Rfam assigns this 115-nucleotide sequence from Ceratobasidium sp. AG-Ba to the family "U5 spliceosomal RNA".
The match comes from Rfam's covariance-model search (69 bits).
Rfam classes the family as a spliceosomal small nuclear RNA.
A reference for the family is Thomas et al. (1990), "The spliceosomal snRNAs of Caenorhabditis elegans", Nucleic Acids Res.
RNA sequence: AGCGACAGAGGUGAACACAUAUCGCAUUCAACCCUCGCCUUUUACUAGAGUUGACCGUGAGUCUGCCUCGACAUGUCGCAUACGAAUUUUUCAGACAUCCUGUCCUUCUAGGAUA
Numbered sequence: 001a002g003c004g005a006c007a008g009a010g011g012u013g014a015a016c017a018c019a020u021a022u023c024g025c026a027u028u029c030a031a032c033c034c035u036c037g038c039c040u041u042u043u044a045c046u047a048g049a050g051u052u053g054a055c056c057g058u059g060a061g062u063c064u065g066c067c068u069c070g071a072c073a074u075g076u077c078g079c080a081u082a083c084g085a086a087u088u089u090u091u092c093a094g095a096c097a098u099c100c101u102g103u104c105c106u107u108c109u110a111g112g113a114u115a
Stems, first nucleotide, its partner, number of pairs: 003078004009068005015062002018059002028054005034048002097114006
Rfam describes the family as follows. U5 RNA is a component of both types of known spliceosome. The precise function of this molecule is unknown, though it is known that the 5' loop is required for splice site selection and p220 binding, and that both the 3' stem-loop and the Sm site are important for Sm protein binding and cap methylation. The family has 180 seed sequences and 28,527 matches in Rfam 15.1.